[Rfam]
Nucleotides: 074
Base pairs, nucleotide, nucleotide: 010025011024012023013022016065017064018063020061021060045055046054047053
Number, partner (000 for none) and nucleotide at each position: 001000c002000c003000u004000g005000g006000c007000c008000c009000c010025g011024g012023c013022g014000a015000u016065g017064g018063a019000u020061c021060c022013c023012g024011c025010c026000a027000g028000g029000g030000c031000c032000g033000c034000a035000g036000g037000c038000c039000c040000g041000a042000a043000c044000c045055g046054c047053c048000g049000u050000a051000c052000c053047g054046g055045c056000u057000g058000a059000u060021g061020g062000c063018u064017c065016c066000u067000g068000a069000c070000u071000c072000g073000a074000c